[Rfam]
RNA sequence: ACUUACUCGUUGGGGUGCCCCGGGCAAUCGGGGCUGAGAGGCGCAAGCUAACCCAUCGAACCUGAUCCGGUUGAUACCGGCGGAGGGAACGGGUAGCUCAAUUUC
Numbered sequence: 001a002c003u004u005a006c007u008c009g010u011u012g013g014g015g016u017g018c019c020c021c022g023g024g025c026a027a028u029c030g031g032g033g034c035u036g037a038g039a040g041g042c043g044c045a046a047g048c049u050a051a052c053c054c055a056u057c058g059a060a061c062c063u064g065a066u067c068c069g070g071u072u073g074a075u076a077c078c079g080g081c082g083g084a085g086g087g088a089a090c091g092g093g094u095a096g097c098u099c100a101a102u103u104u105c
Base pairs, nucleotide, nucleotide: 006093007092008091009090010089011055012054013053014052017034018033019032020031021030041048042047061086062085063084067080068079069078070077
Rfam assigns this 105-nucleotide sequence from Paenirhodobacter populi to the family "TPP riboswitch aptamer (THI element)".
NCBI's taxonomy places the organism under Bacteria, Pseudomonadati, Pseudomonadota, Rhodobacterales, Paenirhodobacter.